[Rfam]
RNA: ASpks TB sRNA
RNA sequence: CUUGAGCGAGCCCAGCCACAGCGGCCGCCCGGCCUCCCGCUCCCGGCCAUAGGUGGCCAGCAGCGCCUCCGCCUC
Number, nucleotide and partner (000 for none) at each position: 001c000002u000003u000004g000005a000006g000007c000008g000009a000010g000011c000012c000013c000014a000015g025016c024017c023018a000019c000020a000021g000022c000023g017024g016025c015026c000027g000028c000029c000030c000031g000032g070033c000034c000035u000036c000037c000038c065039g064040c000041u000042c000043c060044c000045g058046g000047c056048c055049a054050u000051a000052g000053g000054u049055g048056g047057c000058c045059a000060g043061c000062a000063g000064c039065g038066c000067c000068u000069c000070c032071g000072c000073c000074u000075c000